RNA sequence: UAGGGGGGUCGGGGUCUGGAACCCCUCCCCAAACCCAGGAUAACACUGAAAAUAGAGGGGAA
Numbered sequence: 001u002a003g004g005g006g007g008g009u010c011g012g013g014g015u016c017u018g019g020a021a022c023c024c025c026u027c028c029c030c031a032a033a034c035c036c037a038g039g040a041u042a043a044c045a046c047u048g049a050a051a052a053u054a055g056a057g058g059g060g061a062a
Base pairs, nucleotide, nucleotide: 008041009040010039012036013035014034015033018029019028022060023059024058025057026056027055
A member of the RNA family "Gag/pol translational readthrough site" from Carlito syrichta, 62 nucleotides long. Rfam classes the family as a cis-regulatory element. Rfam links the family to the GO term viral translational readthrough. A reference for the family is ten Dam et al. (1990), "RNA pseudoknots: translational frameshifting and readthrough on viral RNAs", Virus Genes. Lineage of the source: Eukaryota > Bilateria > Euteleostomi > Tarsiiformes > Carlito.